[Rfam]
RNA sequence: AUAGAUAAAUUAAUCGUUACUCAUAUAAUUCUCAGAAUAGGGCUGAGAAGUUUCUACUAAUGACCGUAAAUCAUUUAGCUAUGAGUGAAAGUGUGCCUAGG
Numbered sequence: 001a002u003a004g005a006u007a008a009a010u011u012a013a014u015c016g017u018u019a020c021u022c023a024u025a026u027a028a029u030u031c032u033c034a035g036a037a038u039a040g041g042g043c044u045g046a047g048a049a050g051u052u053u054c055u056a057c058u059a060a061u062g063a064c065c066g067u068a069a070a071u072c073a074u075u076u077a078g079c080u081a082u083g084a085g086u087g088a089a090a091g092u093g094u095g096c097c098u099a100g101g
Stems, first nucleotide, its partner, number of pairs: 018087008029049007058077002060074004